RNA sequence: UUUAUGCAUCACGAGAAGGGCUGACGUCCUCGCCAACCUGCCAACCUGGGCAAGGUGGUUGCCGCCAAGCGGCGAUGCGGUCGAUACCGACAAUCAAACAGGUAUCC
Numbered sequence: 001u002u003u004a005u006g007c008a009u010c011a012c013g014a015g016a017a018g019g020g021c022u023g024a025c026g027u028c029c030u031c032g033c034c035a036a037c038c039u040g041c042c043a044a045c046c047u048g049g050g051c052a053a054g055g056u057g058g059u060u061g062c063c064g065c066c067a068a069g070c071g072g073c074g075a076u077g078c079g080g081u082c083g084a085u086a087c088c089g090a091c092a093a094u095c096a097a098a099c100a101g102g103u104a105u106c107c
Base pairs, nucleotide, nucleotide: 006078007077008076009075010074015031017030018029019028020027021026032059033058034057037055038054039053040051041050042049044103045102046101047100048099080091081090082089083088